The record is a 236-nucleotide RNA sequence from Geobacter argillaceus, which matches "Group II catalytic intron D1-D4-6" in Rfam. Rfam describes the family as follows. Group II introns are found in rRNA, tRNA and mRNA of organelles in fungi, plants and protists, and also in mRNA in bacteria. NCBI's taxonomy places the organism under Bacteria, Pseudomonadati, Thermodesulfobacteriota, Geobacteraceae, Geobacter.
RNA sequence: UAAGUCCCGUCCGGGGAAUUGUCCGAUUCGCCCCGGUAGUUCAAGGGAGCGGCGUCUUGGCAACAAGGGGUCGUAAGUUCCCAAUUGGCAAAGCAGCAGGCCGUAACGAAAGUGAACCUACAGGUAGCCUCGUAAAUUGCUUGAAGAUGCCGACCCUGUGGUCAGAAGGGGAAGGCCGUUGUUCUCUGGCCUUGAUAACGGAAUCAGCCAGCAAAAUCUUCCGGGGUAGCAGGGGC
Numbered sequence: 001u002a003a004g005u006c007c008c009g010u011c012c013g014g015g016g017a018a019u020u021g022u023c024c025g026a027u028u029c030g031c032c033c034c035g036g037u038a039g040u041u042c043a044a045g046g047g048a049g050c051g052g053c054g055u056c057u058u059g060g061c062a063a064c065a066a067g068g069g070g071u072c073g074u075a076a077g078u079u080c081c082c083a084a085u086u087g088g089c090a091a092a093g094c095a096g097c098a099g100g101c102c103g104u105a106a107c108g109a110a111a112g113u114g115a116a117c118c119u120a121c122a123g124g125u126a127g128c129c130u131c132g133u134a135a136a137u138u139g140c141u142u143g144a145a146g147a148u149g150c151c152g153a154c155c156c157u158g159u160g161g162u163c164a165g166a167a168g169g170g171g172a173a174g175g176c177c178g179u180u181g182u183u184c185u186c187u188g189g190c191c192u193u194g195a196u197a198a199c200g201g202a203a204u205c206a207g208c209c210a211g212c213a214a215a216a217u218c219u220u221c222c223g224g225g226g227u228a229g230c231a232g233g234g235g236c
Base pairs, nucleotide, nucleotide: 012035013034014033015032016031019026020203022201024200037087038086039085040084045082046081047079048078049074050073051072052071053070055068056067057066058065059064124230125228127227128226129225130224131223132222143221144220145219146218147217148216149176150175151174154170155169156168157167182214183213187211189209191207